[Rfam]
RNA sequence: ACCGGGGUCCGGGCCCCUCUGGCAGCCGUCUACAGGCUGCGAUGUCGGACUCUCUCA
Numbered sequence: 001a002c003c004g005g006g007g008u009c010c011g012g013g014c015c016c017c018u019c020u021g022g023c024a025g026c027c028g029u030c031u032a033c034a035g036g037c038u039g040c041g042a043u044g045u046c047g048g049a050c051u052c053u054c055u056c057a
Stems, first nucleotide, its partner, number of pairs: 006051007022040006